[Rfam]
RNA sequence: UUACUGAAACGGCAAACCGUAGGGAAACCACGGGACGCAAAGCUAGGGAGCUAAAGCGCAAAACGCCAUGCCAGCCCAGCUGCCACG
Numbered sequence: 001u002u003a004c005u006g007a008a009a010c011g012g013c014a015a016a017c018c019g020u021a022g023g024g025a026a027a028c029c030a031c032g033g034g035a036c037g038c039a040a041a042g043c044u045a046g047g048g049a050g051c052u053a054a055a056g057c058g059c060a061a062a063a064c065g066c067c068a069u070g071c072c073a074g075c076c077c078a079g080c081u082g083c084c085a086c087g
Stems, first nucleotide, its partner, number of pairs: 012038002017033004022029002041081004046077003050071002056066003
Dot-bracket structure: ...........((...((((.((....))))))...))..((((.(((.((....(((.....)))...))...)))))))......
RNA: c-di-GMP-I riboswitch aptamer